[Rfam]
RNA: azaaromatic riboswitch aptamer (yjdF RNA)
Organism: Lacticaseibacillus paracasei
RNA sequence: CAUUGCGCUAUCAAAAACACAGUCUGGUUGGUAGUCCAGACGCGGCUUAGGCUGUCAGUAUCCUUCCUCCUUGGAUGUCCAGAUUGCGUGAAAAUCU
Dot-bracket structure: ...(((((.((..........((((((........))))))(((((....))))).........(((.....))).......)).))))).......
Numbered sequence: 001c002a003u004u005g006c007g008c009u010a011u012c013a014a015a016a017a018c019a020c021a022g023u024c025u026g027g028u029u030g031g032u033a034g035u036c037c038a039g040a041c042g043c044g045g046c047u048u049a050g051g052c053u054g055u056c057a058g059u060a061u062c063c064u065u066c067c068u069c070c071u072u073g074g075a076u077g078u079c080c081a082g083a084u085u086g087c088g089u090g091a092a093a094a095u096c097u
Stems, first nucleotide, its partner, number of pairs: 004090005010084002022041006042055005065075003